Rfam assigns this 129-nucleotide RNA sequence from Austrofundulus limnaeus to the family "U4atac minor spliceosomal RNA". Rfam links the family to the GO terms U4atac snRNP, mRNA 5'-splice site recognition and spliceosomal tri-snRNP complex assembly. A reference for the family is Lorkovic et al. (2005), "Evolutionary conservation of minor U12-type spliceosome between plants and humans", RNA. The family's RNA type in Rfam is spliceosomal small nuclear RNA. The family has 61 seed sequences and 1,648 matches in Rfam 15.1. About the family: U4atac is an essential component of the minor U12-type spliceosome complex which is required for removal of the rarer class of eukaryotic introns (AT-AC, U12-type).
[Rfam]
RNA sequence: ACUUUCCUUGUCUCGGGGUGGUUCGGGAGGCUCAAUGAACGUCUAGUGAGAGUUUCCCUGCUGACACCGAAUCAACACAUUCGCAUCACUUGGGCGAUUUCGCUCAGGAAAGGUGCAAUUUUUGGAACA
Number, nucleotide and partner (000 for none) at each position: 001a000002c000003u000004u000005u000006c018007c017008u016009u015010g000011u000012c000013u000014c000015g009016g008017g007018g006019u000020g000021g061022u060023u000024c000025g000026g000027g056028a055029g054030g053031c052032u051033c050034a000035a000036u000037g000038a000039a047040c046041g000042u000043c000044u000045a000046g040047u039048g000049a000050g033051a032052g031053u030054u029055u028056c027057c000058c000059u000060g022061c021062u000063g000064a000065c000066a000067c000068c000069g000070a000071a000072u000073c000074a000075a000076c000077a000078c000079a000080u000081u000082c000083g116084c115085a114086u113087c112088a000089c000090u000091u106092g105093g104094g103095c102096g101097a000098u000099u000100u000101c096102g095103c094104u093105c092106a091107g000108g000109a000110a000111a000112g087113g086114u085115g084116c083117a000118a000119u000120u000121u000122u000123u000124g000125g000126a000127a000128c000129a000